[Rfam]
RNA sequence: CUCCCCGAAAUGCAUUUAGGUGCAGCGUUGUGGUUGAGUUUUAUAGAGGUAGAGCUACUGAUAGGAUGCGGGGGCUUCACCGCCUACCAACUCCUGAUAAACUCCGAAUGCUAUAAAAUAUACACAGCAGUGAGGGCAUGGGUGCUAAGGUCCAUGUCCGAGAGGGAAAGAACCCAGACCAUCAUCUAAGGUCCCUAAAUCUAUGCUAAGUUGAUCAAACGUGGUUUGAUUGCUUUGACAGCUAGGAUGUUAGCUUGGAAGCAGCUAUUCAUUUAAAGAGUGCGUAACAGCUCACUAGUCGAGCGAUCGAGCGUGGAUAAUAAUCGGGCAUAAGCAUAGUACCGAAGAUAUGGAAUUGAAAAAUUGGUAGGGGAGCAUUCUAGUUGCACUGAAGGCGUAUGGCGAUGUAUGCUGGAGCGGCUAGAAAAGCAAAU
Numbered sequence: 001c002u003c004c005c006c007g008a009a010a011u012g013c014a015u016u017u018a019g020g021u022g023c024a025g026c027g028u029u030g031u032g033g034u035u036g037a038g039u040u041u042u043a044u045a046g047a048g049g050u051a052g053a054g055c056u057a058c059u060g061a062u063a064g065g066a067u068g069c070g071g072g073g074g075c076u077u078c079a080c081c082g083c084c085u086a087c088c089a090a091c092u093c094c095u096g097a098u099a100a101a102c103u104c105c106g107a108a109u110g111c112u113a114u115a116a117a118a119u120a121u122a123c124a125c126a127g128c129a130g131u132g133a134g135g136g137c138a139u140g141g142g143u144g145c146u147a148a149g150g151u152c153c154a155u156g157u158c159c160g161a162g163a164g165g166g167a168a169a170g171a172a173c174c175c176a177g178a179c180c181a182u183c184a185u186c187u188a189a190g191g192u193c194c195c196u197a198a199a200u201c202u203a204u205g206c207u208a209a210g211u212u213g214a215u216c217a218a219a220c221g222u223g224g225u226u227u228g229a230u231u232g233c234u235u236u237g238a239c240a241g242c243u244a245g246g247a248u249g250u251u252a253g254c255u256u257g258g259a260a261g262c263a264g265c266u267a268u269u270c271a272u273u274u275a276a277a278g279a280g281u282g283c284g285u286a287a288c289a290g291c292u293c294a295c296u297a298g299u300c301g302a303g304c305g306a307u308c309g310a311g312c313g314u315g316g317a318u319a320a321u322a323a324u325c326g327g328g329c330a331u332a333a334g335c336a337u338a339g340u341a342c343c344g345a346a347g348a349u350a351u352g353g354a355a356u357u358g359a360a361a362a363a364u365u366g367g368u369a370g371g372g373g374a375g376c377a378u379u380c381u382a383g384u385u386g387c388a389c390u391g392a393a394g395g396c397g398u399a400u401g402g403c404g405a406u407g408u409a410u411g412c413u414g415g416a417g418c419g420g421c422u423a424g425a426a427a428a429g430c431a432a433a434u
Stems, first nucleotide, its partner, number of pairs: 001375006011024005026130001027128006037121001038119009052105001053103002059099002063095004070088002072085004134159010164175003179353004184349003190343003199340001201339006220315003224312010241299005247272003252266003273277001278293001282291002354365004376429001378426010394413008
Rfam assigns this 434-nucleotide part of an RNA from an uncultured Flavobacteriia bacterium to the family "Bacterial large subunit ribosomal RNA". The base pairs follow the family's consensus structure, which is taken from published work. Its Rfam clan is "LSU clan".